The family of this 83-nucleotide RNA from Strigomonas culicis is "tRNA". Rfam links the family to the GO term triplet codon-amino acid adaptor activity. The source organism's lineage runs through Eukaryota, Euglenozoa, Trypanosomatidae, Strigomonadinae and Strigomonas. Pairs were carried over by alignment from the consensus structure, which is taken from published work.
[Rfam]
RNA sequence: GGCAAGAUGGUCGAGUGGUCCAAGACGUCACGUUCAGGUCGUGAUCUCCCCUGGAGGCGUGGGUUCAAACCCCACUCUUGUCA
Numbered sequence: 001g002g003c004a005a006g007a008u009g010g011u012c013g014a015g016u017g018g019u020c021c022a023a024g025a026c027g028u029c030a031c032g033u034u035c036a037g038g039u040c041g042u043g044a045u046c047u048c049c050c051c052u053g054g055a056g057g058c059g060u061g062g063g064u065u066c067a068a069a070c071c072c073c074a075c076u077c078u079u080g081u082c083a
Stems, first nucleotide, its partner, number of pairs: 001082007010026003028044005059075005